MIR8024 microRNA precursor family: a 78-nucleotide RNA from Solanum tuberosum.
It scores 60 bits against the family's covariance model.
RNA sequence: UUAAAGAAUUUGAAGAUUUCAACUUGAAGAAUUUGAAGACUUCAACUUGCAAACUUGAAAAAUUUGAAGACUUCAACU
Dot-bracket structure: ((.(((..((((((..(((((..((((((..........))))))..........)))))..))))))..))).))..
Numbered sequence: 001u002u003a004a005a006g007a008a009u010u011u012g013a014a015g016a017u018u019u020c021a022a023c024u025u026g027a028a029g030a031a032u033u034u035g036a037a038g039a040c041u042u043c044a045a046c047u048u049g050c051a052a053a054c055u056u057g058a059a060a061a062a063u064u065u066g067a068a069g070a071c072u073u074c075a076a077c078u
Stems, first nucleotide, its partner, number of pairs: 001076002004073003009068006017060005024045006